[Rfam]
Shown here is a 113-nucleotide sequence from Lacticaseibacillus camelliae, a member of the family "23S methyl RNA motif". By type it is a cis-regulatory element. Pairs were carried over by alignment from the consensus structure, which is taken from published work. Rfam links the family to the GO term regulation of gene expression.
RNA sequence: UUAUUUCUGGCUUUUAUCAGGGCUUGCUUUUGGGAAAUUGAUAAAAGUUAGCGAUGAAAAAUUUAACUAACGUACCGUCUCGCCGUGCAGUCACCGAGGUGGUGCGUUUUUUU
Numbered sequence: 001u002u003a004u005u006u007c008u009g010g011c012u013u014u015u016a017u018c019a020g021g022g023c024u025u026g027c028u029u030u031u032g033g034g035a036a037a038u039u040g041a042u043a044a045a046a047g048u049u050a051g052c053g054a055u056g057a058a059a060a061a062u063u064u065a066a067c068u069a070a071c072g073u074a075c076c077g078u079c080u081c082g083c084c085g086u087g088c089a090g091u092c093a094c095c096g097a098g099g100u101g102g103u104g105c106g107u108u109u110u111u112u113u
Stems, first nucleotide, its partner, number of pairs: 002056004007051013069108014085094003